[Rfam]
RNA sequence: GAAGGUAGGUCCUUCGAUAUCGGCAUGCAGGUGCAGGUGUCAAACCGCCCCGAGCUGCUGCGGUGAAUGAGUCGUGGUGGUGAGCGUCGUGGGAAAAGCCUUGCGUGACAAGGCAGGU
Dot-bracket structure: (((((.....)))))((((((.((((....)))).))))))....(.((.(((((.(((.((((......)))).))).)).....))).)).....((((((.....))))))..).
Numbered sequence: 001g002a003a004g005g006u007a008g009g010u011c012c013u014u015c016g017a018u019a020u021c022g023g024c025a026u027g028c029a030g031g032u033g034c035a036g037g038u039g040u041c042a043a044a045c046c047g048c049c050c051c052g053a054g055c056u057g058c059u060g061c062g063g064u065g066a067a068u069g070a071g072u073c074g075u076g077g078u079g080g081u082g083a084g085c086g087u088c089g090u091g092g093g094a095a096a097a098g099c100c101u102u103g104c105g106u107g108a109c110a111a112g113g114c115a116g117g118u
Stems, first nucleotide, its partner, number of pairs: 001015005016041006023034004046117001048092002051089003054081002057078003061074004098114006
Shown here is a 118-nucleotide RNA from Nocardia aurantiaca, a member of the family "Group II catalytic intron D1-D4-2". From the family's description: Group II introns are found in rRNA, tRNA and mRNA of organelles in fungi, plants and protists, and also in mRNA in bacteria. NCBI's taxonomy places the organism under Bacteria, Bacillati, Actinomycetes, Mycobacteriales, Nocardia. The base pairs follow the family's consensus structure. It scores 100 bits against the family's covariance model.